[Rfam]
RNA sequence: UAGAAGAAGGUAGCUAAGGGAAGUCGGCAAAAUAGUUCCGUAACUUUGGGAAAAGGAAUGGCUCUGAGGGCUGGGCACAGGGGUCCUCGCUCUACAUCCUUCCGCUGAGCAGGGGCUGCCGACCGCUCUUCGGAGCGGAUGGCGGAACUUCGCGCGGCGGUUGGAGAGGGGCAGGAAUUGACUUCGGUCGUUCCUUGUGCGAUGAACAGCCAUCUCAGAACUGGAGCGGACAAGGGGAAUCCGACUGUUUAAUUAAAACAAAGCAUUGCGAUACCCGCAACCGGUGUUGACGCAAUGUGAUUUCUGCCCAGUGCUCUGAAUGUCAAAGUGAUGAAAUUCAAACAAGCGCGGGUAAACGGCGGGAGUAACUAUGACUCUCUUAAGGUAGCCAAAUGCCUCGUCAUCUAAUUAGUGACGCGCAUGAAUGGAUUAACGAGAUUCCCACUGUCCCUAUCUACCAUCUAGCGAAACCACAGCCACGGGAACGGGCGUGGAACAU
Dot-bracket structure: ((((....(((((.((.(((..............(((((....(....).....)))))((.(((((((((((.((((((((((((..(((.....(((..((((((.(((((..((((((.((((((....)))))).))))))..))).)).))))))..)))....))).)))...............)))))))))......)))))..)))))).))(...).......(((((((((..(((.........)))..((((((((....(((....)))......))))))))...(((.(((..((((((.(..(((.....(((......))).....))))))))..)))))((((((.......))))))(...)...............(((((.......)))))..........)))....)).)))))))....))).)).))))).))))............(((((........))))).....
RNA: Eukaryotic large subunit ribosomal RNA, nucleotides 1979 to 2477